[Rfam]
RNA: Hepatitis C virus stem-loop SL2531 and SL2549AU
RNA sequence: UCCUGGCGGACGCGCGGAUCUGCGCCUGCCUUUGGAUGAUGAUGCUUAUGGCCCAGGCUGAAGCCGCUCUGG
Numbered sequence: 001u002c003c004u005g006g007c008g009g010a011c012g013c014g015c016g017g018a019u020c021u022g023c024g025c026c027u028g029c030c031u032u033u034g035g036a037u038g039a040u041g042a043u044g045c046u047u048a049u050g051g052c053c054c055a056g057g058c059u060g061a062a063g064c065c066g067c068u069c070u071g072g
Base pairs, nucleotide, nucleotide: 006023007022008021009020010019024067025066028064029063031061034058037055038054